Rfam assigns this 91-nucleotide RNA sequence from Cucurbita maxima to the family "Small nucleolar RNA snoR26". The base pairs follow the family's consensus structure, which was predicted with WAR. Rfam classes the family as a C/D-box small nucleolar RNA.

[Rfam]
Nucleotides: 091
Stems, first nucleotide, its partner, number of pairs: 004089005
Number, partner (000 for none) and nucleotide at each position: 001000c002000c003000c004089g005088c006087a007086u008085c009000g010000g011000u012000g013000a014000u015000g016000a017000a018000a019000c020000a021000a022000u023000a024000u025000u026000a027000u028000u029000g030000u031000u032000a033000u034000c035000c036000u037000u038000g039000c040000a041000c042000u043000u044000u045000g046000a047000u048000u049000u050000a051000c052000c053000a054000u055000g056000a057000a058000g059000a060000a061000a062000c063000c064000c065000a066000u067000g068000g069000g070000g071000a072000a073000u074000a075000u076000u077000g078000u079000u080000c081000c082000u083000g084000a085008g086007a087006u088005g089004c090000u091000u